[Rfam]
RNA sequence: AUCAUCCUUUUCUUGGGGUUGUGCUGCUGUCCAGUGAGCACAUAGUGAGGGCAGUACUGCUAAGGCCUAACCAACACACCCGUAUCAGCUGGAGCUUUGCUUUACCUUUGUGCAAUUUUUGGAAAA
Numbered sequence: 001a002u003c004a005u006c007c008u009u010u011u012c013u014u015g016g017g018g019u020u021g022u023g024c025u026g027c028u029g030u031c032c033a034g035u036g037a038g039c040a041c042a043u044a045g046u047g048a049g050g051g052c053a054g055u056a057c058u059g060c061u062a063a064g065g066c067c068u069a070a071c072c073a074a075c076a077c078a079c080c081c082g083u084a085u086c087a088g089c090u091g092g093a094g095c096u097u098u099g100c101u102u103u104a105c106c107u108u109u110g111u112g113c114a115a116u117u118u119u120u121g122g123a124a125a126a
Base pairs, nucleotide, nucleotide: 006018007017008016009015021060022059023058026055027054028053029052030051031050032049038046039045082113083112084111085110087108090104091103092102093101094100095099
The family of this 126-nucleotide RNA from Callithrix jacchus is "U4atac minor spliceosomal RNA". Rfam links the family to the GO terms spliceosomal tri-snRNP complex assembly, mRNA 5'-splice site recognition and pre-mRNA 5'-splice site binding. The literature on the family includes a 2005 paper in RNA by Lorkovic et al., "Evolutionary conservation of minor U12-type spliceosome between plants and humans". The match comes from Rfam's covariance-model search (95 bits). It is annotated as a spliceosomal small nuclear RNA. Lineage of the source: Eukaryota > Dipnotetrapodomorpha > Primates > Cebidae > Callithrix.